[Rfam]
RNA sequence: AAGUGGUUGGACUCCUUCUAGAAGUAGAGCACAAUUUGUAAAUUACAAUUGGCUCAACCCUACCGCAUGAACCGAACUUGACAAAAGUGCAGUAGGGGUAAAUUCUCCCGAUUCGGUGCGGAGGAGAAAA
Numbered sequence: 001a002a003g004u005g006g007u008u009g010g011a012c013u014c015c016u017u018c019u020a021g022a023a024g025u026a027g028a029g030c031a032c033a034a035u036u037u038g039u040a041a042a043u044u045a046c047a048a049u050u051g052g053c054u055c056a057a058c059c060c061u062a063c064c065g066c067a068u069g070a071a072c073c074g075a076a077c078u079u080g081a082c083a084a085a086a087g088u089g090c091a092g093u094a095g096g097g098g099u100a101a102a103u104u105c106u107c108c109c110g111a112u113u114c115g116g117u118g119c120g121g122a123g124g125a126g127a128a129a130a
Stems, first nucleotide, its partner, number of pairs: 025057001027055003032051003036048005058097006065090004071117006107121002